[Rfam]
Source information: The family of this 118-nucleotide sequence from Mesobacillus selenatarsenatis is "PyrR binding site". A reference for the family is Bonner et al. (2001), "Molecular recognition of pyr mRNA by the Bacillus subtilis attenuation regulatory protein PyrR", Nucleic Acids Res. A search with the family's covariance model found it, with a score of 62 bits.

RNA sequence: AUGCCCUUUUAAAUGCAGUCCAGAGAGGCUGAAAAGGGGGAACACAUCGCUGAUGGCUUUGUGCGGGUUUUUUAACCCUUACCCUCUUUGUAUCUACUGGCAAAGAGGGUUUUUGUUU
Numbered sequence: 001a002u003g004c005c006c007u008u009u010u011a012a013a014u015g016c017a018g019u020c021c022a023g024a025g026a027g028g029c030u031g032a033a034a035a036g037g038g039g040g041a042a043c044a045c046a047u048c049g050c051u052g053a054u055g056g057c058u059u060u061g062u063g064c065g066g067g068u069u070u071u072u073u074a075a076c077c078c079u080u081a082c083c084c085u086c087u088u089u090g091u092a093u094c095u096a097c098u099g100g101c102a103a104a105g106a107g108g109g110u111u112u113u114u115g116u117u118u
Base pairs, nucleotide, nucleotide: 004038005037006036007035008034009033016031017030018029019028020027040073041072042071044069047066048065049064050063053060081110082109083108084107085106086105087104088103089102090101091100